L31-Actinobacteria ribosomal protein leader: a 45-nucleotide RNA sequence from Bifidobacterium pullorum. The family's RNA type in Rfam is cis-regulatory leader. Lineage of the source: Bacteria > Actinomycetota > Bifidobacteriales > Bifidobacterium > Bifidobacterium pullorum. The family's consensus secondary structure is taken from published work. Clan: Ribosomal Protein L31 Leader clan.
[Rfam]
RNA sequence: UAGGUUCCGGUUCACGCCAGCCAUAGGGGCAAGCGACCCGGGUCC
Dot-bracket structure: ..((..((((....(((..(((.....)))..)))..))))..))